[Rfam]
RNA sequence: GUCAGUAACCCACCCCUAAAGGGGAUGGGCUUGCAAGGCGAAAGUCAAAACAAGCCAUACUGACCAGCCUAAGACUUUCGAGGUCUACGUUUUUUGAGUCAAGACACCAGGCGGAUGCGAAGCUAGUCCCCUGCCCUGUCGUUUGUAGUUAAACAGUUUUAAGGUCACUGAAACAGUGCUGCAAGCUGAACAAGCUCUCAAAACAUUGGCGAAGCUAACUUUAC
Number, nucleotide and partner (000 for none) at each position: 001g064002u063003c062004a061005g060006u059007a058008a000009c000010c029011c028012a026013c000014c000015c022016c021017u000018a000019a000020a000021g016022g015023g000024g000025a000026u012027g000028g011029g010030c054031u053032u052033g051034c000035a000036a000037g000038g000039c000040g000041a000042a000043a000044g000045u000046c000047a000048a000049a000050a000051c033052a032053a031054g030055c000056c000057a000058u007059a006060c005061u004062g003063a002064c001065c000066a000067g210068c209069c208070u000071a206072a086073g085074a084075c083076u082077u000078u000079c000080g000081a000082g076083g075084u074085c073086u072087a000088c000089g204090u203091u202092u201093u200094u000095u000096g197097a196098g195099u194100c000101a000102a000103g000104a139105c138106a000107c000108c133109a132110g131111g130112c000113g129114g128115a127116u126117g220118c000119g000120a000121a216122g215123c214124u213125a000126g116127u115128c114129c113130c111131c110132u109133g108134c000135c000136c000137u000138g105139u104140c000141g186142u185143u184144u183145g182146u181147a180148g179149u178150u000151a000152a000153a177154c176155a000156g174157u173158u172159u171160u170161a169162a000163g168164g000165u000166c000167a000168c163169u161170g160171a159172a158173a157174c156175a000176g154177u153178g149179c148180u147181g146182c145183a144184a143185g142186c141187u000188g000189a000190a000191c000192a000193a000194g099195c098196u097197c096198u000199c000200a093201a092202a091203a090204c089205a000206u071207u000208g069209g068210c067211g000212a000213a124214g123215c122216u121217a000218a000219c000220u117221u000222u000223a000224c000
Description: A member of the RNA family "HNH endonuclease-associated RNA and ORF (HEARO) RNA" from Kamptonema sp. PCC 6506, 224 nucleotides long. The source organism's lineage runs through Bacteria, Cyanophyceae, Oscillatoriophycideae, Microcoleaceae and Kamptonema. By type it is a non-coding RNA gene. Rfam 15.1 lists 952 matches to the family in 249 species. On this family, see Weinberg et al., Nature 2009: "Exceptional structured noncoding RNAs revealed by bacterial metagenome analysis".